[Rfam]
RNA sequence: AAGCCAUGAUGAAAACGCCUUAGCUGAUGGUUGGGUCCAUCAGAUCAGCUUGACUUUCAAGAUUGACAAUAUAGGCCCUUCUGAGCUU
Numbered sequence: 001a002a003g004c005c006a007u008g009a010u011g012a013a014a015a016c017g018c019c020u021u022a023g024c025u026g027a028u029g030g031u032u033g034g035g036u037c038c039a040u041c042a043g044a045u046c047a048g049c050u051u052g053a054c055u056u057u058c059a060a061g062a063u064u065g066a067c068a069a070u071a072u073a074g075g076c077c078c079u080u081c082u083g084a085g086c087u088u
Stems, first nucleotide, its partner, number of pairs: 001088004
RNA: small nucleolar RNA snoR114
Organism: Centaurea solstitialis